RNA sequence: UCCAUCGUAAGGUGGAAUCUGAAGGAAGCCUGCGGCAAACAACCGGCCUGAGGAACACGAAUCUCAUAGGAGGCGGGAUGCAUGGAGUGAGUGGGCUGACGGCCACAAAGCUCAUCCUGACACAGAGCAUGCAUAACGUAUAUGAGGCAGGUAGAUGGUUGGAAAGACGUGUGU
Numbered sequence: 001u002c003c004a005u006c007g008u009a010a011g012g013u014g015g016a017a018u019c020u021g022a023a024g025g026a027a028g029c030c031u032g033c034g035g036c037a038a039a040c041a042a043c044c045g046g047c048c049u050g051a052g053g054a055a056c057a058c059g060a061a062u063c064u065c066a067u068a069g070g071a072g073g074c075g076g077g078a079u080g081c082a083u084g085g086a087g088u089g090a091g092u093g094g095g096c097u098g099a100c101g102g103c104c105a106c107a108a109a110g111c112u113c114a115u116c117c118u119g120a121c122a123c124a125g126a127g128c129a130u131g132c133a134u135a136a137c138g139u140a141u142a143u144g145a146g147g148c149a150g151g152u153a154g155a156u157g158g159u160u161g162g163a164a165a166g167a168c169g170u171g172u173g174u
Stems, first nucleotide, its partner, number of pairs: 001016006028174002031171002036166001040161006046152005062147006073139003078134006085113004091106004